[Rfam]
RNA sequence: CUCACUUGCACUGCAGCUGCUGGACUCGGCACAAGAAUGGAUGAUGAAAAACUCUUGUGCGUGUGACAGCGGCUAUAGUGGCUUGUGAUUUCUCGUCC
Numbered sequence: 001c002u003c004a005c006u007u008g009c010a011c012u013g014c015a016g017c018u019g020c021u022g023g024a025c026u027c028g029g030c031a032c033a034a035g036a037a038u039g040g041a042u043g044a045u046g047a048a049a050a051a052c053u054c055u056u057g058u059g060c061g062u063g064u065g066a067c068a069g070c071g072g073c074u075a076u077a078g079u080g081g082c083u084u085g086u087g088a089u090u091u092c093u094c095g096u097c098c
Base pairs, nucleotide, nucleotide: 009080010079011078012077015074016073017072018071019070020069021068022067025063029060030059031058032057033056035054036053
RNA: mir-210 microRNA precursor family
Organism: Darwinula stevensoni